[Rfam]
RNA sequence: AGGUGACCUAAAGGGUUCCCUUUGUCAUCCUAUGCCCGGAGCCGUCUGUAAGGCAGGGACAGCAAGGGGAGGCUCAGCUGUCACCCCU
Numbered sequence: 001a002g003g004u005g006a007c008c009u010a011a012a013g014g015g016u017u018c019c020c021u022u023u024g025u026c027a028u029c030c031u032a033u034g035c036c037c038g039g040a041g042c043c044g045u046c047u048g049u050a051a052g053g054c055a056g057g058g059a060c061a062g063c064a065a066g067g068g069g070a071g072g073c074u075c076a077g078c079u080g081u082c083a084c085c086c087c088u
Base pairs, nucleotide, nucleotide: 017070018069019068020067021066022065024063025062028059029058030057031056034054035053036052
This 88-nucleotide RNA sequence from Poecilia formosa belongs to the Rfam family "mir-204 microRNA precursor family". The family has 60 seed sequences and 1,730 matches in Rfam 15.1. Its family is annotated with miRNA-mediated post-transcriptional gene silencing and RISC complex in the Gene Ontology. A reference for the family is Chen et al. (2005), "The developmental miRNA profiles of zebrafish as determined by small RNA cloning", Genes Dev.